[Rfam]
RNA sequence: AGCAGUUCUUGGGUGACGCACCCCAGAAUCGGGCUCCCUCCUCUCUGGUUCCAGGUGUGUCACUUGAGAACUGCA
Numbered sequence: 001a002g003c004a005g006u007u008c009u010u011g012g013g014u015g016a017c018g019c020a021c022c023c024c025a026g027a028a029u030c031g032g033g034c035u036c037c038c039u040c041c042u043c044u045c046u047g048g049u050u051c052c053a054g055g056u057g058u059g060u061c062a063c064u065u066g067a068g069a070a071c072u073g074c075a
Stems, first nucleotide, its partner, number of pairs: 002074002005071013019057004026051008
A member of the RNA family "mir-9223 microRNA precursor family" from Myotis brandtii, 75 nucleotides long. Lineage of the source: Eukaryota > Deuterostomia > Mammalia > Eutheria > Myotis. The match comes from Rfam's covariance-model search (79 bits). Rfam 15.1 lists 14,641 matches to the family in 28 species. The base pairs follow the family's consensus structure, which was predicted with RNAalifold.